The record is an 87-nucleotide RNA from Nothobranchius furzeri, which matches "mir-7 microRNA precursor family" in Rfam.
Lineage of the source: Eukaryota > Bilateria > Vertebrata > Clupeocephala > Nothobranchius.
Rfam 15.1 lists 2,589 matches to the family in 797 species.
Gene Ontology terms of the family: RISC complex and miRNA-mediated post-transcriptional gene silencing.
Pairs were carried over by alignment from the consensus structure, which was predicted with PFOLD.
It scores 67 bits against the family's covariance model.
On this family, see Lagos-Quintana et al., Science 2001: "Identification of novel genes coding for small expressed RNAs".
About the family: This family represents the microRNA (miRNA) precursor mir-7.

[Rfam]
RNA sequence: AUGGUUGUGCUGAGUGGAAGACUAGUGAUUUUGUUGUGCAGCUGAUCAAAGAACAACAAGUCCCAGUCUACCUCUUAGCACGAGCAG
Numbered sequence: 001a002u003g004g005u006u007g008u009g010c011u012g013a014g015u016g017g018a019a020g021a022c023u024a025g026u027g028a029u030u031u032u033g034u035u036g037u038g039c040a041g042c043u044g045a046u047c048a049a050a051g052a053a054c055a056a057c058a059a060g061u062c063c064c065a066g067u068c069u070a071c072c073u074c075u076u077a078g079c080a081c082g083a084g085c086a087g
Stems, first nucleotide, its partner, number of pairs: 002086002005083004010078005016072002019069005025064001027062005033057005